[Rfam]
RNA sequence: AUGGGCGUCUUACCAGACAUGGUUAGACCUGGCCGUCUGUCUAAUACUGUCUGGUAAAACCGUCCAU
Numbered sequence: 001a002u003g004g005g006c007g008u009c010u011u012a013c014c015a016g017a018c019a020u021g022g023u024u025a026g027a028c029c030u031g032g033c034c035g036u037c038u039g040u041c042u043a044a045u046a047c048u049g050u051c052u053g054g055u056a057a058a059a060c061c062g063u064c065c066a067u
Stems, first nucleotide, its partner, number of pairs: 002066006010057010022045006
Shown here is a 67-nucleotide RNA from Pongo pygmaeus, a member of the family "mir-8/mir-141/mir-200 microRNA precursor family". The sequence is in the family's curated seed alignment. On this family, see Lagos-Quintana et al., Science 2001: "Identification of novel genes coding for small expressed RNAs". Rfam links the family to the GO terms RISC complex and miRNA-mediated post-transcriptional gene silencing. Taxonomically the source falls in Pongo (Eukaryota, Chordata, Tetrapoda, Catarrhini).